[Rfam]
RNA sequence: AAAGUGCUGAAUCACUGGCGGAAGUGGAAUUAACCACCGGGAGUACAGCACUUUCAAAGCCGACCGUCUGGGCAUGAUGC
Numbered sequence: 001a002a003a004g005u006g007c008u009g010a011a012u013c014a015c016u017g018g019c020g021g022a023a024g025u026g027g028a029a030u031u032a033a034c035c036a037c038c039g040g041g042a043g044u045a046c047a048g049c050a051c052u053u054u055c056a057a058a059g060c061c062g063a064c065c066g067u068c069u070g071g072g073c074a075u076g077a078u079g080c
Base pairs, nucleotide, nucleotide: 003052004051005050006049007048008047009046011044012043015040016039017068018067019066020065021064024037025036026035027034057075059073060072061071
The family of this 80-nucleotide RNA from Anaerocolumna aminovalerica is "ZMP/ZTP riboswitch aptamer (pfl RNA motif)".
Pairs were carried over by alignment from the consensus structure, which is taken from published work.
The match comes from Rfam's covariance-model search (58 bits).
The family has 185 seed sequences and 3,295 matches in Rfam 15.1.